[Rfam]
RNA sequence: CCUGAUGUUCUGCCAUCAGUAGUCUACCCACUGAAUAAAGUGCGUGGGGACAGAGGAAGCCUCAUCCGUAAGGAUGGUCACUAAACCGUGAGGGGUGGUGGCGACUGCAAGCACCACUGCGGUCGGGAGC
Numbered sequence: 001c002c003u004g005a006u007g008u009u010c011u012g013c014c015a016u017c018a019g020u021a022g023u024c025u026a027c028c029c030a031c032u033g034a035a036u037a038a039a040g041u042g043c044g045u046g047g048g049g050a051c052a053g054a055g056g057a058a059g060c061c062u063c064a065u066c067c068g069u070a071a072g073g074a075u076g077g078u079c080a081c082u083a084a085a086c087c088g089u090g091a092g093g094g095g096u097g098g099u100g101g102c103g104a105c106u107g108c109a110a111g112c113a114c115c116a117c118u119g120c121g122g123u124c125g126g127g128a129g130c
Base pairs, nucleotide, nucleotide: 002019003018004017005016006015007014027048028047029046030045031044032039063076064075065074066073067072077102078101079100080099086093087092104123105122106121107120108119109118

The record is a 130-nucleotide sequence, which matches "Group II catalytic intron D1-D4-7" in Rfam. Rfam links the family to the GO term Group II intron splicing. From the family's description: Group II introns are found in rRNA, tRNA and mRNA of organelles in fungi, plants and protists, and also in mRNA in bacteria.